[Rfam]
RNA sequence: AGUGGAAUGUACUAGCCAUAGCAAAAGCAUUCAUGCUACGGCCCCUCUCAGAUUCUAAGAAAUCUGCUAAAUUCUGCU
Numbered sequence: 001a002g003u004g005g006a007a008u009g010u011a012c013u014a015g016c017c018a019u020a021g022c023a024a025a026a027g028c029a030u031u032c033a034u035g036c037u038a039c040g041g042c043c044c045c046u047c048u049c050a051g052a053u054u055c056u057a058a059g060a061a062a063u064c065u066g067c068u069a070a071a072u073u074c075u076g077c078u
Stems, first nucleotide, its partner, number of pairs: 015042003020078004025073002027039001029037001049066006
Shown here is a 78-nucleotide RNA from Alligator mississippiensis, a member of the family "Mammalian CPEB3 ribozyme". A search with the family's covariance model found it, with a score of 41 bits. The family's consensus secondary structure is taken from published work. On this family, see Salehi-Ashtiani et al., Science 2006: "A genomewide search for ribozymes reveals an HDV-like sequence in the human CPEB3 gene". Gene Ontology term of the family: RNA nuclease activity.